[Rfam]
RNA: c-di-GMP-I riboswitch aptamer
Organism: Halonatronomonas betaini
RNA sequence: UGCAAAUAUUGGCAAACCUGUUGUGAAACAGGGACGCAAAACCCUGGAUCUUAUGUCUUAAUAAGACUGCCUGGUUGCUGCU
Numbered sequence: 001u002g003c004a005a006a007u008a009u010u011g012g013c014a015a016a017c018c019u020g021u022u023g024u025g026a027a028a029c030a031g032g033g034a035c036g037c038a039a040a041a042c043c044c045u046g047g048a049u050c051u052u053a054u055g056u057c058u059u060a061a062u063a064a065g066a067c068u069g070c071c072u073g074g075u076u077g078c079u080g081c082u
Stems, first nucleotide, its partner, number of pairs: 012037002017032006040076004046071002049066002051061002
Dot-bracket structure: ...........((...((((((....))))))...))..((((..((.((((.......))...))...)).))))......